[Rfam]
RNA sequence: UCUGGCAGUGAUGAUGCUCUUGCCCUCACUGAGACUCUGAGUCUAUAAUGAGAACUUUUAUUGGAAGGACUCGUUGCCUCUGAGCCAGA
Numbered sequence: 001u002c003u004g005g006c007a008g009u010g011a012u013g014a015u016g017c018u019c020u021u022g023c024c025c026u027c028a029c030u031g032a033g034a035c036u037c038u039g040a041g042u043c044u045a046u047a048a049u050g051a052g053a054a055c056u057u058u059u060a061u062u063g064g065a066a067g068g069a070c071u072c073g074u075u076g077c078c079u080c081u082g083a084g085c086c087a088g089a
Base pairs, nucleotide, nucleotide: 001089002088003087004086005085006084
RNA: Small nucleolar RNA SNORD103/SNORD85
Organism: Laticauda laticaudata